Shown here is a 166-nucleotide sequence from Columba livia, a member of the family "Small Cajal body specific RNA 1". Gene Ontology terms of the family: nucleolus, RNA processing and Cajal body. Rfam 15.1 lists 715 matches to the family in 617 species. Rfam's curators write: scaRNAs are a specific class of small nuclear RNAs which localise to the Cajal bodies and guide the modification of RNA polymerase II transcribed spliceosomal RNAs U1, U2, U4, U5 and U12. ACA35 belong to the H/ACA box class of guide RNAs as it has the predicted hairpin-hinge-hairpin-tail structure, conserved H/ACA-box motifs and is found associated with GAR1. It is predicted to guide pseudouridylation of the U2 spliceosomal snRNA at residue U89. A reference for the family is Darzacq et al. (2002), "Cajal body-specific small nuclear RNAs: a novel class of 2'-O-methylation and pseudouridylation guide RNAs", EMBO J.

[Rfam]
RNA sequence: GAGCACUUGAUACUUACCGAGCCGUCCGUGUCCCGGGUCUCGUGCAGAGAUCUGGGGUUCACUUUGUGAUCGCUGGGUCCAGAAAGUGCAACAUUAAAACAAGCCAUGAAGUGUUUAAGCUCAGUGUAUAAAGGAUAACACUGGGUUAUAGCUCAGAGGCACAGAA
Numbered sequence: 001g002a003g004c005a006c007u008u009g010a011u012a013c014u015u016a017c018c019g020a021g022c023c024g025u026c027c028g029u030g031u032c033c034c035g036g037g038u039c040u041c042g043u044g045c046a047g048a049g050a051u052c053u054g055g056g057g058u059u060c061a062c063u064u065u066g067u068g069a070u071c072g073c074u075g076g077g078u079c080c081a082g083a084a085a086g087u088g089c090a091a092c093a094u095u096a097a098a099a100c101a102a103g104c105c106a107u108g109a110a111g112u113g114u115u116u117a118a119g120c121u122c123a124g125u126g127u128a129u130a131a132a133g134g135a136u137a138a139c140a141c142u143g144g145g146u147u148a149u150a151g152c153u154c155a156g157a158g159g160c161a162c163a164g165a166a
Stems, first nucleotide, its partner, number of pairs: 003089006016078003020074003024070003028062003032057002034054001036052006103160003124139002129134001141156006